The record is a 68-nucleotide RNA sequence from Synechococcus sp. LTW-R, which matches "Cyano-1 RNA" in Rfam.
RNA sequence: GUGCGUGUGAGGAGUGGAUUCGCCCCAAGGCGUGGAAACAAGGUCACACCCUUGAAGUGAAUCCCGAA
Numbered sequence: 001g002u003g004c005g006u007g008u009g010a011g012g013a014g015u016g017g018a019u020u021c022g023c024c025c026c027a028a029g030g031c032g033u034g035g036a037a038a039c040a041a042g043g044u045c046a047c048a049c050c051c052u053u054g055a056a057g058u059g060a061a062u063c064c065c066g067a068a
Base pairs, nucleotide, nucleotide: 016064017063018062019061020060023057028052029051030050032049033048034047
It is annotated as a small RNA.
The family has 265 seed sequences and 283 matches in Rfam 15.1.